This 169-nucleotide RNA sequence from Pseudomonas oryzihabitans belongs to the Rfam family "Manganese Mn2+ riboswitch aptamer (yybP-ykoY)". The organism belongs to Pseudomonas, within Bacteria.
RNA sequence: CCUCUUUGGGGAGUAGCCUGCUUCCACCACGGUGGAAAGCGUCCUGAUCAACAUACUCGGCAACCGCCGUGGUCAGGACAGCCAGUCAGGGUUGGCGAGACCAGGGGCAUCACCGCGCCGUGCCGGGCGUGCGGGGAUGUCUUGUGGAUCCGAGCCCGGCCGGCGCUGU
Numbered sequence: 001c002c003u004c005u006u007u008g009g010g011g012a013g014u015a016g017c018c019u020g021c022u023u024c025c026a027c028c029a030c031g032g033u034g035g036a037a038a039g040c041g042u043c044c045u046g047a048u049c050a051a052c053a054u055a056c057u058c059g060g061c062a063a064c065c066g067c068c069g070u071g072g073u074c075a076g077g078a079c080a081g082c083c084a085g086u087c088a089g090g091g092u093u094g095g096c097g098a099g100a101c102c103a104g105g106g107g108c109a110u111c112a113c114c115g116c117g118c119c120g121u122g123c124c125g126g127g128c129g130u131g132c133g134g135g136g137a138u139g140u141c142u143u144g145u146g147g148a149u150c151c152g153a154g155c156c157c158g159g160c161c162g163g164c165g166c167u168g169u
Stems, first nucleotide, its partner, number of pairs: 021039003041079010058069004083168004

The pairing is the family consensus, mapped onto this sequence.